[Rfam]
Nucleotides: 359
Base pairs, nucleotide, nucleotide: 001322002321003320009319011199012198013197014196016193018192019191020190022086023085024084025083026082027081028080030079031078032075033074034073035072036071037070038069039068040067045063046062047061048060049059050058051057090186091185092184093182094181095180097178098177101175102174103173104172105171106170107169108152109151112148113147114146115145116144117143118142119141123134124133125132160167161166204245205244206243207242208241209240213239214238218234219233220232221231256318257317258316259315260314261313264296266294267293268292269291270290271289272288273287274286275285276284277283300307301306324351325350326349333344334343335342336341
Number, partner (000 for none) and nucleotide at each position: 001322g002321g003320c004000u005000u006000a007000a008000a009319g010000u011199g012198u013197u014196c015000g016193u017000a018192g019191c020190c021000u022086g023085c024084c025083g026082u027081g028080u029000a030079a031078g032075u033074c034073u035072g036071c037070u038069g039068u040067g041000a042000a043000a044000u045063c046062c047061a048060a049059g050058c051057g052000c053000u054000u055000a056000a057051c058050g059049u060048u061047u062046g063045g064000a065000a066000g067040u068039g069038c070037a071036g072035c073034g074033g075032a076000u077000a078031c079030u080028g081027c082026a083025u084024g085023g086022c087000u088000u089000g090186g091185g092184a093182c094181c095180g096000g097178a098177c099000g100000g101175c102174g103173u104172c105171g106170a107169g108152g109151c110000u111000a112148u113147u114146c115145c116144a117143g118142g119141a120000g121000u122000a123134g124133g125132a126000g127000u128000g129000a130000a131000a132125u133124c134123c135000a136000a137000a138000a139000a140000u141119u142118c143117c144116u145115g146114g147113a148112g149000g150000a151109g152108c153000a154000c155000c156000u157000g158000u159000g160167g161166c162000g163000a164000a165000a166161g167160c168000g169107c170106u171105c172104g173103a174102c175101g176000a177098g178097u179000a180095c181094g182093g183000a184092u185091c186090c187000g188000a189000c190020g191019g192018u193016g194000a195000g196014g197013a198012a199011c200000g201000a202000a203000a204245g205244c206243c207242g208241g209240g210000g211000g212000a213239g214238c215000a216000a217000a218234g219233g220232g221231g222000a223000u224000u225000a226000g227000a228000u229000a230000c231221c232220c233219u234218c235000g236000u237000a238214g239213u240209c241208c242207c243206g244205g245204c246000c247000g248000u249000a250000a251000a252000c253000a254000a255000u256318g257317u258316g259315c260314g261313u262000u263000u264296g265000a266294u267293g268292u269291c270290g271289g272288c273287u274286a275285a276284c277283c278000u279000c280000c281000g282000u283277g284276g285275u286274u287273a288272g289271c290270c291269g292268g293267u294266g295000c296264c297000g298000a299000a300307g301306a302000a303000a304000a305000a306301u307300c308000g309000u310000u311000a312000a313261a314260c315259g316258c317257a318256c319009c320003g321002c322001c323000u324351g325350g326349g327000u328000a329000g330000u331000a332000c333344g334343g335342u336341c337000g338000c339000a340000a341336g342335g343334c344333u345000g346000a347000a348000a349326c350325u351324u352000a353000a354000a355000g356000g357000a358000a359000u